[Rfam]
RNA: Actinobacteria sRNA Ms_IGR-5
Organism: Streptomyces diastatochromogenes
RNA sequence: ACCGAAGAGAGGAGGUGGUUCGGAGCAUGUAUGCACACCGGACGUCGGAGGUGGCUGCGGGCUAGCGCCCGUCACCACACCCAGUGCGGUGCCGGACCAGCGUGUGUGCACACACGCAGCCGGCCAAUCCCACGCAGUCACCCGACCCGCGAGCUCGCCGGUACGUCCGGCCGGCCCCCGCCGACAGGCGGAGGACCAGAGCUCGCGGGUCGUCUGCG
Number, nucleotide and partner (000 for none) at each position: 001a000002c000003c000004g000005a000006a000007g000008a000009g000010a000011g000012g000013a000014g000015g058016u057017g056018g055019u054020u000021c000022g000023g000024a000025g000026c000027a000028u000029g000030u000031a000032u000033g000034c000035a000036c000037a000038c000039c000040g000041g000042a000043c000044g000045u000046c000047g000048g000049a000050g000051g000052u000053g000054g019055c018056u017057g016058c015059g000060g125061g124062c123063u122064a000065g120066c119067g000068c116069c000070c000071g000072u000073c000074a000075c000076c000077a000078c000079a000080c000081c000082c000083a000084g000085u000086g000087c000088g000089g000090u000091g000092c000093c000094g000095g000096a000097c000098c000099a000100g000101c000102g000103u000104g000105u000106g000107u000108g000109c000110a000111c000112a000113c000114a000115c000116g068117c000118a000119g066120c065121c000122g063123g062124c061125c060126a000127a000128u000129c000130c000131c000132a000133c000134g000135c000136a000137g000138u000139c000140a000141c000142c000143c212144g211145a210146c209147c208148c207149g206150c205151g204152a203153g202154c201155u200156c000157g175158c174159c173160g172161g171162u170163a000164c000165g000166u000167c000168c000169g000170g162171c161172c160173g159174g158175c157176c000177c000178c000179c000180g000181c000182c000183g000184a000185c000186a000187g000188g000189c000190g000191g000192a000193g000194g000195a000196c000197c000198a000199g000200a155201g154202c153203u152204c151205g150206c149207g148208g147209g146210u145211c144212g143213u000214c000215u000216g000217c000218g000